[Rfam]
RNA sequence: CCAGAGGGUCGGCCAGCCGCGGCAGUUUGUCGAGGAAAGUCCGGGCUCCACGAUUAAAAGGUGCCGGAUAACGUCCGGCGGGGGCAACCCUAGGGAAAGUGCAACAGAAAGCAGGUCGCGACGGCUUCGGUCACGUGACAGUGAAAGGGUGCGGUAAGAGCGCACCGCGGGACUGGCAACAGGCCUGGCAUGGUAAACCCCACCUGGAGCAAAACCAAAUAGGGGCGGCAUAUGGCUUUUUCGGCUUGCUGCCCGGGUUGGUUGCUUGAGCCACGCAGCAAUGCAUGGCCGAGAUGAAUGGCUGGCUAUUCCGUUUCGGCGGAUGGACAGAACCCGGCUUACAGACCCUCUGGUAUU
Numbered sequence: 001c002c003a004g005a006g007g008g009u010c011g012g013c014c015a016g017c018c019g020c021g022g023c024a025g026u027u028u029g030u031c032g033a034g035g036a037a038a039g040u041c042c043g044g045g046c047u048c049c050a051c052g053a054u055u056a057a058a059a060g061g062u063g064c065c066g067g068a069u070a071a072c073g074u075c076c077g078g079c080g081g082g083g084g085c086a087a088c089c090c091u092a093g094g095g096a097a098a099g100u101g102c103a104a105c106a107g108a109a110a111g112c113a114g115g116u117c118g119c120g121a122c123g124g125c126u127u128c129g130g131u132c133a134c135g136u137g138a139c140a141g142u143g144a145a146a147g148g149g150u151g152c153g154g155u156a157a158g159a160g161c162g163c164a165c166c167g168c169g170g171g172a173c174u175g176g177c178a179a180c181a182g183g184c185c186u187g188g189c190a191u192g193g194u195a196a197a198c199c200c201c202a203c204c205u206g207g208a209g210c211a212a213a214a215c216c217a218a219a220u221a222g223g224g225g226c227g228g229c230a231u232a233u234g235g236c237u238u239u240u241u242c243g244g245c246u247u248g249c250u251g252c253c254c255g256g257g258u259u260g261g262u263u264g265c266u267u268g269a270g271c272c273a274c275g276c277a278g279c280a281a282u283g284c285a286u287g288g289c290c291g292a293g294a295u296g297a298a299u300g301g302c303u304g305g306c307u308a309u310u311c312c313g314u315u316u317c318g319g320c321g322g323a324u325g326g327a328c329a330g331a332a333c334c335c336g337g338c339u340u341a342c343a344g345a346c347c348c349u350c351u352g353g354u355a356u357u
Base pairs, nucleotide, nucleotide: 001353002352003351004350005349006348007347008346009345010344011342012306013305014304015303016302017301018300020032021031022030023029024028037340038339039338041337042336043335044334045333046209047208048207049206056240057239059205060204061203062202063201064078065077066076067075068074079093080091081090082089083088094200095199099198100197101194102193117135118134120132121131122130124128148166149165150164151163152162153161167189168187169186170185171184173182174181175180213263214262215261216260223254224253225252226251227250228249234246235245236244237243270289271288272287273286275284276283277282
The record is a 357-nucleotide sequence from Sphingorhabdus sp. SMR4y, which matches "Bacterial RNase P class A" in Rfam. By type it is a ribozyme. The family's consensus secondary structure is taken from published work. It scores 302 bits against the family's covariance model. NCBI's taxonomy places the organism under Bacteria, Pseudomonadati, Pseudomonadota, Sphingorhabdaceae, Sphingorhabdus.